Source information:
The record is a 45-nucleotide sequence from Pullulanibacillus pueri, which matches "PreQ1 (pre queuosine) riboswitch aptamer" in Rfam. NCBI's taxonomy places the organism under Bacteria, Bacillota, Caryophanales, Sporolactobacillaceae, Pullulanibacillus. Rfam 15.1 lists 873 matches to the family in 692 species. About the family: This family is a bacterial riboswitch that binds to the metabolite preQ1, an intermediate in the biosynthesis of the modified nucleoside queuosine from GTP. One example of this riboswitch is located in the leader of the Bacillus subtilis ykvJKLM (queCDEF) operon which encodes four genes necessary for queuosine production. PreQ1 binding to the riboswitch aptamer is thought to induce premature transcription termination within the leader to down-regulate expression of these genes. The literature on the family includes a 2004 paper in J Biol Chem by Reader et al., "Identification of four genes necessary for biosynthesis of the modified nucleoside queuosine". The pairing is the family consensus, mapped onto this sequence.

RNA sequence: CUCGACGUGGUUCGAGACCCUCCCACGCUAAAAAACUAAGGAGAG
Numbered sequence: 001c002u003c004g005a006c007g008u009g010g011u012u013c014g015a016g017a018c019c020c021u022c023c024c025a026c027g028c029u030a031a032a033a034a035a036c037u038a039a040g041g042a043g044a045g
Stems, first nucleotide, its partner, number of pairs: 006027005016037001